[Rfam]
RNA sequence: GGCCAUAUCACGGGAGAGAUCGCGGGCUGUCGCAGGCUCUCGGCGCCGAAGGAGCAACCGCCCCGGAAACUCUCAGGCAAACGGACCGUGAUGUGGCA
Numbered sequence: 001g002g003c004c005a006u007a008u009c010a011c012g013g014g015a016g017a018g019a020u021c022g023c024g025g026g027c028u029g030u031c032g033c034a035g036g037c038u039c040u041c042g043g044c045g046c047c048g049a050a051g052g053a054g055c056a057a058c059c060g061c062c063c064c065g066g067a068a069a070c071u072c073u074c075a076g077g078c079a080a081a082c083g084g085a086c087c088g089u090g091a092u093g094u095g096g097c098a
Stems, first nucleotide, its partner, number of pairs: 006093008020043003045078003048074002052072003058066002